Overview: This 92-nucleotide RNA from Prunus dulcis belongs to the Rfam family "MIR6288 microRNA precursor family". A search with the family's covariance model found it, with a score of 86 bits. Its family is annotated with RISC complex and miRNA-mediated post-transcriptional gene silencing in the Gene Ontology.
[Rfam]
RNA sequence: CUAAAACUAGUCAUUUGUCAUUUUCUAAUUGGUUAUUAGUGUGUUCAAAUUUUCUAAAAAUCAAUAAGAAAAUGACAAGUUACUAGUUUUGG
Numbered sequence: 001c002u003a004a005a006a007c008u009a010g011u012c013a014u015u016u017g018u019c020a021u022u023u024u025c026u027a028a029u030u031g032g033u034u035a036u037u038a039g040u041g042u043g044u045u046c047a048a049a050u051u052u053u054c055u056a057a058a059a060a061u062c063a064a065u066a067a068g069a070a071a072a073u074g075a076c077a078a079g080u081u082a083c084u085a086g087u088u089u090u091g092g
Base pairs, nucleotide, nucleotide: 002091003090004089005088006087007086008085009084010083011082013080014079015078016077017076018075019074020073021072022071023070024069025068026067028065029064030063031062032061033060034059036057037056038055039054